[Rfam]
Nucleotides: 077
Stems, first nucleotide, its partner, number of pairs: 004074001006072001008070001010068011022057009032047001
Number, partner (000 for none) and nucleotide at each position: 001000c002000u003000u004074c005000a006072u007000g008070c009000u010068g011067g012066g013065c014064u015063u016062g017061u018060u019059u020058u021000a022057a023056g024055u025054u026053g027052c028051c029050u030049g031000c032047g033000a034000u035000c036000c037000u038000g039000u040000u041000u042000a043000a044000a045000g046000a047032c048000u049030c050029a051028g052027g053026c054025a055024g056023c057022u058020a059019a060018a061017g062016c063015a064014a065013g066012u067011c068010u069000g070008g071000a072006a073000a074004g075000c076000a077000g
The family of this 77-nucleotide RNA from Acipenser ruthenus is "mir-1788 microRNA precursor family". Rfam links the family to the GO terms RISC complex and miRNA-mediated post-transcriptional gene silencing. The base pairs follow the family's consensus structure, which was predicted with RNAalifold.